[Rfam]
RNA sequence: AGCUAGUAGGACAGACUCUUCAGUCUAGGUUGGUGGAAGCAGGAGAACACUGCUUGACUAGCGGAGA
Numbered sequence: 001a002g003c004u005a006g007u008a009g010g011a012c013a014g015a016c017u018c019u020u021c022a023g024u025c026u027a028g029g030u031u032g033g034u035g036g037a038a039g040c041a042g043g044a045g046a047a048c049a050c051u052g053c054u055u056g057a058c059u060a061g062c063g064g065a066g067a
Base pairs, nucleotide, nucleotide: 011034012033014031015030016029017028048066050064051063052062053061
RNA: Tombus virus defective interfering (DI) RNA region 3
Organism: Tombusvirus cymbidii